[Rfam]
Nucleotides: 233
Base pairs, nucleotide, nucleotide: 005090006089007088009087010086011085012084013083014082015081016080017079018078021045022044023043024042027039028038029037049056050055059071060070061069062068093231094230096228100221101220102219104217105216109197110196111195112194113193114192115191116190117189118188119187120185122154123153124152125151129146130145131144132143133142134141158182159181160180162179163178164177165176166175199209200208201207
Number, partner (000 for none) and nucleotide at each position: 001000g002000a003000g004000u005090u006089a007088c008000u009087c010086c011085u012084c013083a014082c015081u016080g017079g018078c019000a020000a021045g022044g023043u024042u025000a026000a027039g028038u029037g030000g031000u032000u033000c034000a035000g036000c037029c038028a039027c040000g041000g042024a043023g044022c045021c046000g047000a048000a049056g050055c051000g052000a053000a054000a055050g056049c057000g058000a059071g060070c061069c062068u063000g064000a065000a066000c067000a068062g069061g070060g071059c072000g073000g074000a075000a076000u077000a078018g079017u080016c081015a082014g083013u084012g085011g086010g087009g088007g089006u090005a091000g092000a093231c094230g095000c096228g097000a098000a099000a100221c101220c102219a103000u104217g105216u106000g107000a108000u109197c110196u111195a112194c113193c114192c115191a116190u117189g118188g119187c120185c121000a122154g123153g124152u125151u126000g127000a128000a129146g130145u131144c132143c133142c134141g135000g136000u137000a138000a139000c140000a141134c142133g143132g144131g145130a146129u147000g148000g149000a150000g151125g152124a153123c154122c155000g156000a157000a158182c159181c160180a161000g162179g163178a164177g165176a166175c167000g168000u169000u170000g171000a172000a173000a174000a175166g176165u177164c178163u179162u180160u181159g182158g183000a184000u185120g186000a187119g188118u189117u190116g191115u192114g193113g194112g195111u196110a197109g198000g199209g200208g201207u202000g203000a204000a205000a206000g207201g208200c209199c210000a211000a212000u213000c214000a215000a216105a217104c218000u219102u220101g221100g222000a223000a224000a225000u226000a227000g228096c229000u230094c231093g232000u233000a

Shown here is a 233-nucleotide part of an RNA from Prolixibacter sp. SD074, a member of the family "Bacterial large subunit ribosomal RNA". Pairs were carried over by alignment from the consensus structure, which is taken from published work. It scores 2759 bits against the family's covariance model.